The family of this 62-nucleotide RNA is "Twister_sister_ribozyme". A reference for the family is Weinberg et al. (2015), "New classes of self-cleaving ribozymes revealed by comparative genomics analysis", Nat Chem Biol. Gene Ontology term of the family: catalytic activity.
RNA sequence: GCAGGGCAAGGCCCAGUCCCGUGCAAGCCGGGACCGCCCCGGGGCGCGGCGCUCAUUCCUGC
Numbered sequence: 001g002c003a004g005g006g007c008a009a010g011g012c013c014c015a016g017u018c019c020c021g022u023g024c025a026a027g028c029c030g031g032g033a034c035c036g037c038c039c040c041g042g043g044g045c046g047c048g049g050c051g052c053u054c055a056u057u058c059c060u061g062c
Base pairs, nucleotide, nucleotide: 002061003060004059005058011050012049013048014027016034018032019031020030035046036045037044038043